[Rfam]
RNA sequence: UUACUGGAUGCUUUUAGCCAAUGAACUGUUUUGUCACUCUCUGACAGAGAAAAAAUUGUUCUUUGACCGAGAGAGACAAAACAGUUCAAUAGCUAAAGCGUUCAGUAAC
Numbered sequence: 001u002u003a004c005u006g007g008a009u010g011c012u013u014u015u016a017g018c019c020a021a022u023g024a025a026c027u028g029u030u031u032u033g034u035c036a037c038u039c040u041c042u043g044a045c046a047g048a049g050a051a052a053a054a055a056u057u058g059u060u061c062u063u064u065g066a067c068c069g070a071g072a073g074a075g076a077c078a079a080a081a082c083a084g085u086u087c088a089a090u091a092g093c094u095a096a097a098g099c100g101u102u103c104a105g106u107a108a109c
Stems, first nucleotide, its partner, number of pairs: 001108006011098002014096005020090001022088008030070002033067004050060002053057001
RNA: mir-8517 microRNA precursor family